mir-2060 microRNA precursor family: a 93-nucleotide RNA sequence from Branchiostoma lanceolatum. Lineage of the source: Eukaryota > Opisthokonta > Eumetazoa > Chordata > Branchiostoma.

[Rfam]
Nucleotides: 093
Stems, first nucleotide, its partner, number of pairs: 004084002007081004018074001020072002023069002026066006034055001036053007
Number, partner (000 for none) and nucleotide at each position: 001000g002000u003000u004084u005083a006000g007081c008080u009079g010078u011000g012000u013000g014000u015000g016000g017000a018074u019000a020072g021071u022000u023069u024068u025000c026066a027065g028064c029063a030062c031061c032000a033000a034055g035000g036053a037052c038051a039050g040049g041048u042047g043000u044000g045000u046000u047042u048041a049040u050039u051038u052037g053036u054000a055034u056000u057000g058000a059000a060000g061031g062030g063029u064028g065027u066026u067000c068024a069023g070000c071021a072020c073000c074018a075000g076000g077000g078010a079009c080008a081007g082000g083005u084004g085000u086000g087000u088000u089000u090000g091000u092000g093000u